[Rfam]
RNA sequence: CUCGAGAGGCAGUGUGGUUAGCUGGUUGCAUAUUGAAUUGACAACGGCUACCUUCACUGCCACCCCGA
Numbered sequence: 001c002u003c004g005a006g007a008g009g010c011a012g013u014g015u016g017g018u019u020a021g022c023u024g025g026u027u028g029c030a031u032a033u034u035g036a037a038u039u040g041a042c043a044a045c046g047g048c049u050a051c052c053u054u055c056a057c058u059g060c061c062a063c064c065c066c067g068a
Stems, first nucleotide, its partner, number of pairs: 002068003006064001008061002011058004016053002019050003023046001025045004